[Rfam]
RNA sequence: AUAGUAAUGACUGAGGACAUAGCAGAGGCACUCAUGGUGCAGCCUGUCAGAUUUCAAGGAAUCUGCACAUUCUGCU
Numbered sequence: 001a002u003a004g005u006a007a008u009g010a011c012u013g014a015g016g017a018c019a020u021a022g023c024a025g026a027g028g029c030a031c032u033c034a035u036g037g038u039g040c041a042g043c044c045u046g047u048c049a050g051a052u053u054u055c056a057a058g059g060a061a062u063c064u065g066c067a068c069a070u071u072c073u074g075c076u
Stems, first nucleotide, its partner, number of pairs: 015044002021076007028040003048065007
Shown here is a 76-nucleotide RNA from Alligator mississippiensis, a member of the family "Mammalian CPEB3 ribozyme". Pairs were carried over by alignment from the consensus structure, which is taken from published work. The mammalian CPEB3 ribozyme is a self cleaving RNA located in the second intron of the CPEB3 gene which belongs to a family of genes regulating messenger RNA polyadenylation. This ribozyme is highly conserved and found only in mammals. The CPEB3 ribozyme is structurally and biochemically related to the human hepatitis delta virus (HDV) ribozyme and the HDV ribozyme is proposed to have arisen from the human transcriptome. There is currently only one other known self cleaving ribozyme in mammals, the CoTC motif.